[Rfam]
RNA: Gammaretrovirus core encapsidation signal
RNA sequence: UUCUGUACUAGUUAGCUAACUAGGUCUGUAUCUGGCGGCUCCGUGGAAGAACUGACGAGUUCGUAUUCCCGACCGCAGCCCUGGGAGACGUCUCAGGGGC
Numbered sequence: 001u002u003c004u005g006u007a008c009u010a011g012u013u014a015g016c017u018a019a020c021u022a023g024g025u026c027u028g029u030a031u032c033u034g035g036c037g038g039c040u041c042c043g044u045g046g047a048a049g050a051a052c053u054g055a056c057g058a059g060u061u062c063g064u065a066u067u068c069c070c071g072a073c074c075g076c077a078g079c080c081c082u083g084g085g086a087g088a089c090g091u092c093u094c095a096g097g098g099g100c
Base pairs, nucleotide, nucleotide: 001030003028005026008023009022010021011020012019013018035076036075037074038073042071043070045069046068047067048066049062050061051060052059053058079098080097081096082095083094084093085092086091